RNA sequence: GCCGGUCCUCGGUAGUGGUCCCCGGGAGCAUCCCGCGGACUUCGAUCGAAGACCGGC
Numbered sequence: 001g002c003c004g005g006u007c008c009u010c011g012g013u014a015g016u017g018g019u020c021c022c023c024g025g026g027a028g029c030a031u032c033c034c035g036c037g038g039a040c041u042u043c044g045a046u047c048g049a050a051g052a053c054c055g056g057c
Stems, first nucleotide, its partner, number of pairs: 001057007009049005017041005023035005